[Rfam]
The record is a 346-nucleotide RNA from Rhizobacter sp. Root29, which matches "Bacterial RNase P class A" in Rfam. Taxonomically the source falls in Rhizobacter (Bacteria, Pseudomonadati, Pseudomonadota, Betaproteobacteria). Clan: RNaseP clan.

RNA sequence: GAAGCGGACCAGACCGCCGCUGGUGCAAGGCUCGAAAGGGCGCACUGGAGGAAGGUCCGGACUGCACAGGGCAGCGUAGCAGCCAACGGCUGUCCACCGCGAGGUGAGGAUCAGAGCAACAGAGACGAGUCGCCGCAUCGGCCGCAAGGCCGGCGCGGCGGGUGAAACGGGCAAUCUCUACGCGCAGCAAUACCAAAUAGGCACACGUUGAUUCGGCCCGAGGAGUGUGCGGGUAGGUAGCACCGAGCCGGGCAGCGAUGCCCGGCCCAGAGGAAUGGCGGUCACGGUCGCAGGCUCGCAAGGGUCGGCGGCUGCACAGAAUCCGGCCUAUCGGUCCGCUUCACAC
Numbered sequence: 001g002a003a004g005c006g007g008a009c010c011a012g013a014c015c016g017c018c019g020c021u022g023g024u025g026c027a028a029g030g031c032u033c034g035a036a037a038g039g040g041c042g043c044a045c046u047g048g049a050g051g052a053a054g055g056u057c058c059g060g061a062c063u064g065c066a067c068a069g070g071g072c073a074g075c076g077u078a079g080c081a082g083c084c085a086a087c088g089g090c091u092g093u094c095c096a097c098c099g100c101g102a103g104g105u106g107a108g109g110a111u112c113a114g115a116g117c118a119a120c121a122g123a124g125a126c127g128a129g130u131c132g133c134c135g136c137a138u139c140g141g142c143c144g145c146a147a148g149g150c151c152g153g154c155g156c157g158g159c160g161g162g163u164g165a166a167a168c169g170g171g172c173a174a175u176c177u178c179u180a181c182g183c184g185c186a187g188c189a190a191u192a193c194c195a196a197a198u199a200g201g202c203a204c205a206c207g208u209u210g211a212u213u214c215g216g217c218c219c220g221a222g223g224a225g226u227g228u229g230c231g232g233g234u235a236g237g238u239a240g241c242a243c244c245g246a247g248c249c250g251g252g253c254a255g256c257g258a259u260g261c262c263c264g265g266c267c268c269a270g271a272g273g274a275a276u277g278g279c280g281g282u283c284a285c286g287g288u289c290g291c292a293g294g295c296u297c298g299c300a301a302g303g304g305u306c307g308g309c310g311g312c313u314g315c316a317c318a319g320a321a322u323c324c325g326g327c328c329u330a331u332c333g334g335u336c337c338g339c340u341u342c343a344c345a346c
Base pairs, nucleotide, nucleotide: 001342002341003340004339005338006337007336008335009334010333011331012283013282014281015280016279017278018277020048021047022046023045024044025043026042053329054328055327057326058325059324060323061322062187063186064185065184069219070218071217072216074183075182076181077180078179079093080092081091082090083089094108095106096105097104098103109178110177114176115175116172117171131161133158134157135156136155138153139152140151141150142149143148191239192238193237194236201230202229203228204227205226206225212222213221214220247266248265249264250263251262252261253260254259